[Rfam]
RNA sequence: AUGAACAUUAUGGGAGAGACUGAACUUUAAGGUUUCAGCACCGAAGGAGCAAGUCCCAAAAAUCCUUGGGGUUAAACUCUCAGGUAGAGGUACCAUAGUGGGACG
Numbered sequence: 001a002u003g004a005a006c007a008u009u010a011u012g013g014g015a016g017a018g019a020c021u022g023a024a025c026u027u028u029a030a031g032g033u034u035u036c037a038g039c040a041c042c043g044a045a046g047g048a049g050c051a052a053g054u055c056c057c058a059a060a061a062a063u064c065c066u067u068g069g070g071g072u073u074a075a076a077c078u079c080u081c082a083g084g085u086a087g088a089g090g091u092a093c094c095a096u097a098g099u100g101g102g103a104c105g
Stems, first nucleotide, its partner, number of pairs: 006100008020038004040085003043081002047079003053072007
Rfam assigns this 105-nucleotide sequence from Ammoniphilus sp. CFH 90114 to the family "Glycine riboswitch aptamer". Taxonomically the source falls in Ammoniphilus (Bacteria, Bacillati, Bacilli, Paenibacillaceae). The match comes from Rfam's covariance-model search (65 bits).